[Rfam]
RNA sequence: UUUUUAAGUUUAAUGUUCAUAUAUAUAAAUCCGGCGAUAUGGGCCUGAUGUUUCUACCGAACUACCGUAAAUAGUUGUAGGCUAUAUAUGCAUAUUUGAUAGGG
Numbered sequence: 001u002u003u004u005u006a007a008g009u010u011u012a013a014u015g016u017u018c019a020u021a022u023a024u025a026u027a028a029a030u031c032c033g034g035c036g037a038u039a040u041g042g043g044c045c046u047g048a049u050g051u052u053u054c055u056a057c058c059g060a061a062c063u064a065c066c067g068u069a070a071a072u073a074g075u076u077g078u079a080g081g082c083u084a085u086a087u088a089u090g091c092a093u094a095u096u097u098g099a100u101a102g103g104g
Base pairs, nucleotide, nucleotide: 018090019089020088021087022086023085024084025083029049030048031047033045034044035043058080060076061075062074063073064072

Shown here is a 104-nucleotide RNA from Defluviitalea raffinosedens, a member of the family "Purine riboswitch aptamer". Riboswitches are metabolite binding domains within certain messenger RNAs that serve as precision sensors for their corresponding targets. Pairs were carried over by alignment from the consensus structure, which is taken from published work. Lineage of the source: Bacteria > Bacillati > Lachnospirales > Defluviitaleaceae > Defluviitalea. The match comes from Rfam's covariance-model search (69 bits). Its family is annotated with purine nucleobase biosynthetic process in the Gene Ontology.